[Rfam]
RNA sequence: AGUAAUAACUAGGGGUGUCCAAUGAGUUGGGCUGAGAGAUAAACAUGCAGAAGUUUAUUGACCCUUUGGACCUGAUCUGGCUCAUACCAGCGUGGGGAAGUUUAUGACAUUACAG
Numbered sequence: 001a002g003u004a005a006u007a008a009c010u011a012g013g014g015g016u017g018u019c020c021a022a023u024g025a026g027u028u029g030g031g032c033u034g035a036g037a038g039a040u041a042a043a044c045a046u047g048c049a050g051a052a053g054u055u056u057a058u059u060g061a062c063c064c065u066u067u068g069g070a071c072c073u074g075a076u077c078u079g080g081c082u083c084a085u086a087c088c089a090g091c092g093u094g095g096g097g098a099a100g101u102u103u104a105u106g107a108c109a110u111u112a113c114a115g
Stems, first nucleotide, its partner, number of pairs: 007102004011065004017032005039058005071096004077090004
A member of the RNA family "TPP riboswitch aptamer (THI element)" from Halalkalibacter akibai, 115 nucleotides long. Rfam describes the family as follows. Vitamin B(1) in its active form thiamin pyrophosphate (TPP) is an essential coenzyme that is synthesised by coupling of pyrimidine and thiazole moieties in bacteria. The organism belongs to Halalkalibacter akibai, within Bacteria.